[Rfam]
RNA: RT-14 RNA
Organism: Alkaliphilus metalliredigens
Nucleotides: 146
Base pairs, nucleotide, nucleotide: 003055004054005053006052007051008050009049011048012047019041020040021039023038025036026035027034075085076084077083078082100146101145102144103143104142107138108137109136110135119128
Number, partner (000 for none) and nucleotide at each position: 001000c002000a003055u004054u005053u006052u007051c008050a009049u010000c011048g012047c013000c014000a015000g016000a017000a018000g019041g020040c021039a022000a023038g024000a025036u026035u027034c028000c029000c030000a031000a032000g033000g034027g035026a036025g037000c038023u039021u040020g041019c042000a043000c044000a045000g046000u047012g048011c049009a050008u051007g052006g053005a054004a055003a056000a057000u058000a059000a060000g061000g062000g063000g064000u065000c066000c067000a068000u069000u070000u071000c072000c073000c074000u075085g076084c077083c078082u079000a080000a081000a082078a083077g084076g085075c086000a087000a088000a089000a090000a091000a092000a093000u094000a095000u096000a097000u098000u099000g100146c101145u102144a103143u104142g105000g106000a107138a108137a109136u110135a111000g112000c113000u114000a115000g116000u117000a118000g119128g120000u121000u122000u123000a124000u125000u126000c127000u128119c129000g130000a131000a132000g133000a134000g135110u136109a137108u138107u139000a140000c141000a142104c143103a144102u145101a146100g